RNA: mir-11 microRNA precursor family
RNA sequence: AUGCACUCUGGGACUCUUAUCUGUGACUUGUGCUUUUAUUCAGUUCACAUCACAGGCAGAGUUCUAGCUGUGCGU
Numbered sequence: 001a002u003g004c005a006c007u008c009u010g011g012g013a014c015u016c017u018u019a020u021c022u023g024u025g026a027c028u029u030g031u032g033c034u035u036u037u038a039u040u041c042a043g044u045u046c047a048c049a050u051c052a053c054a055g056g057c058a059g060a061g062u063u064c065u066a067g068c069u070g071u072g073c074g075u
Stems, first nucleotide, its partner, number of pairs: 004072003008067009021055006030048003